Source information: This 93-nucleotide RNA from Cronobacter sakazakii belongs to the Rfam family "Tryptophan operon leader". Rfam classes the family as a cis-regulatory leader.
RNA sequence: CAUGGCUGGUGGCGUACCUCCUGAUCCCGGGCGGUGUCUUCACGUAUGCGCAAGCAUUCAGAUACCAGGCCCGCUCACCGCGGGCUUUUUUUU
Numbered sequence: 001c002a003u004g005g006c007u008g009g010u011g012g013c014g015u016a017c018c019u020c021c022u023g024a025u026c027c028c029g030g031g032c033g034g035u036g037u038c039u040u041c042a043c044g045u046a047u048g049c050g051c052a053a054g055c056a057u058u059c060a061g062a063u064a065c066c067a068g069g070c071c072c073g074c075u076c077a078c079c080g081c082g083g084g085c086u087u088u089u090u091u092u093u
Stems, first nucleotide, its partner, number of pairs: 009043004014037005020031004068086007
Rfam describes the family as follows. At least 6 amino acid operons are known to be regulated by attenuation. In each a leader sequence of 150-200 bp is found upstream of the first gene in the operon. This leader sequence can assume two different secondary structures known as the terminator and the anti-terminator structure. In each case the leader also codes for very short peptide sequence that is rich in the end product amino acid of the operon. Pairs were carried over by alignment from the consensus structure, which is taken from published work. A reference for the family is Kolter and Yanofsky (1982), "Attenuation in amino acid biosynthetic operons", Annu Rev Genet.